[Rfam]
RNA sequence: CAGCAGGAGUAAGUCCUGCCGGGGUAAUAGUCAAAGCCCCGUAGCUUGGAUAGCAGGGUGGCGGGAAACCAAGACCUUGAAGCCUAUCGACAAGUGUUUCCUUGGGAAAUGCGCGAGUCAGCGGGCCGUAACGAAA
Numbered sequence: 001c002a003g004c005a006g007g008a009g010u011a012a013g014u015c016c017u018g019c020c021g022g023g024g025u026a027a028u029a030g031u032c033a034a035a036g037c038c039c040c041g042u043a044g045c046u047u048g049g050a051u052a053g054c055a056g057g058g059u060g061g062c063g064g065g066a067a068a069c070c071a072a073g074a075c076c077u078u079g080a081a082g083c084c085u086a087u088c089g090a091c092a093a094g095u096g097u098u099u100c101c102u103u104g105g106g107a108a109a110u111g112c113g114c115g116a117g118u119c120a121g122c123g124g125g126c127c128g129u130a131a132c133g134a135a136a
Base pairs, nucleotide, nucleotide: 020041021040022039023038024037049088050087051086052085053084054079055078056077057076058075059074063070064069095111096110097109098108099107100106113129114128115127